[Rfam]
The record is a 69-nucleotide RNA from Nonomuraea zeae, which matches "ASpks TB sRNA" in Rfam.
The literature on the family includes a 2009 paper in Mol Microbiol by Arnvig and Young, "Identification of small RNAs in Mycobacterium tuberculosis".
The family's RNA type in Rfam is antisense RNA.
A search with the family's covariance model found it, with a score of 69 bits.
RNA sequence: CUUGAUCGAGCCCAGCCAGAGCGGGACCUCGCGGUCCUGGCCGUAGGUGGCGAGCAGCGCCUGGGCCUC
Numbered sequence: 001c002u003u004g005a006u007c008g009a010g011c012c013c014a015g016c017c018a019g020a021g022c023g024g025g026a027c028c029u030c031g032c033g034g035u036c037c038u039g040g041c042c043g044u045a046g047g048u049g050g051c052g053a054g055c056a057g058c059g060c061c062u063g064g065g066c067c068u069c
Stems, first nucleotide, its partner, number of pairs: 016024002028065003032059002037054002041050003